Description
A member of the RNA family "TPP riboswitch aptamer (THI element)" from Sporosarcina luteola, 101 nucleotides long. The family's consensus secondary structure is taken from published work. About the family: Vitamin B(1) in its active form thiamin pyrophosphate (TPP) is an essential coenzyme that is synthesised by coupling of pyrimidine and thiazole moieties in bacteria. Gene Ontology term of the family: thiamine pyrophosphate binding.

RNA sequence: CACGACCACAAGGGGUGCCUUCAUUGGCUGAGAUUGGACAUUGUCCGGACCCUUCGAACCUGUAAGUUCAUGCUUGCGUAGGGAUGUGGAUGGAAACUGAC
Numbered sequence: 001c002a003c004g005a006c007c008a009c010a011a012g013g014g015g016u017g018c019c020u021u022c023a024u025u026g027g028c029u030g031a032g033a034u035u036g037g038a039c040a041u042u043g044u045c046c047g048g049a050c051c052c053u054u055c056g057a058a059c060c061u062g063u064a065a066g067u068u069c070a071u072g073c074u075u076g077c078g079u080a081g082g083g084a085u086g087u088g089g090a091u092g093g094a095a096a097c098u099g100a101c
Base pairs, nucleotide, nucleotide: 006089007088008087009086010085011053012052013051014050016047017028018027019026036046037045038044039043059082060081061080062079063076064075065074066073